[Rfam]
RNA sequence: GAUACGCGCCGUUACUGACGGAUGUUCGUGGGUCACCACGGUGGAGCGGCGCGCAAGCCAUAGUGCCGACCGUCUGGGCAAGCAGC
Numbered sequence: 001g002a003u004a005c006g007c008g009c010c011g012u013u014a015c016u017g018a019c020g021g022a023u024g025u026u027c028g029u030g031g032g033u034c035a036c037c038a039c040g041g042u043g044g045a046g047c048g049g050c051g052c053g054c055a056a057g058c059c060a061u062a063g064u065g066c067c068g069a070c071c072g073u074c075u076g077g078g079c080a081a082g083c084a085g086c
Stems, first nucleotide, its partner, number of pairs: 003055001005053008015043001017074005028039004064080004
The record is an 86-nucleotide RNA sequence from Olsenella sp. oral taxon 809, which matches "ZMP/ZTP riboswitch aptamer (pfl RNA motif)" in Rfam.